mir-216 microRNA precursor family: a 75-nucleotide RNA from Electrophorus electricus. NCBI's taxonomy places the organism under Eukaryota, Bilateria, Euteleostomi, Gymnotiformes, Electrophorus. A reference for the family is Shao et al. (2008), "Identification of novel chicken microRNAs and analysis of their genomic organization", Gene. A search with the family's covariance model found it, with a score of 64 bits. Rfam links the family to the GO terms RISC complex and miRNA-mediated post-transcriptional gene silencing. Its Rfam clan is "mir-216 clan".
RNA sequence: AAACUGCUUAAUCUCUGCAGGCAACUGUGAUAGUGAUGUUGUAUCCCACAUUCACCUGCAGAGAUUGUGCAGUGA
Numbered sequence: 001a002a003a004c005u006g007c008u009u010a011a012u013c014u015c016u017g018c019a020g021g022c023a024a025c026u027g028u029g030a031u032a033g034u035g036a037u038g039u040u041g042u043a044u045c046c047c048a049c050a051u052u053c054a055c056c057u058g059c060a061g062a063g064a065u066u067g068u069g070c071a072g073u074g075a
Stems, first nucleotide, its partner, number of pairs: 003073005009067009020057002024052001026050004